This 131-nucleotide RNA sequence belongs to the Rfam family "Bacteriophage Diversity-Generating Retroelement RNA".

RNA sequence: CUCUCGUGAUUAGUCAAGGCUUUUACGGAGCGACCUUAGAAAUAUGGUCAGCUUGCUUGUCCUACUUCGGUAAAUACAUUGAGAGGUUUGUAAAAGUUGGAGUAGCUUUAAGAGUGAAAGAACAAGACAAC
Numbered sequence: 001c002u003c004u005c006g007u008g009a010u011u012a013g014u015c016a017a018g019g020c021u022u023u024u025a026c027g028g029a030g031c032g033a034c035c036u037u038a039g040a041a042a043u044a045u046g047g048u049c050a051g052c053u054u055g056c057u058u059g060u061c062c063u064a065c066u067u068c069g070g071u072a073a074a075u076a077c078a079u080u081g082a083g084a085g086g087u088u089u090g091u092a093a094a095a096g097u098u099g100g101a102g103u104a105g106c107u108u109u110a111a112g113a114g115u116g117a118a119a120g121a122a123c124a125a126g127a128c129a130a131c
Stems, first nucleotide, its partner, number of pairs: 001030002004028006013020002063072003086131001088130004096123003105115002
It is one of the family's seed sequences.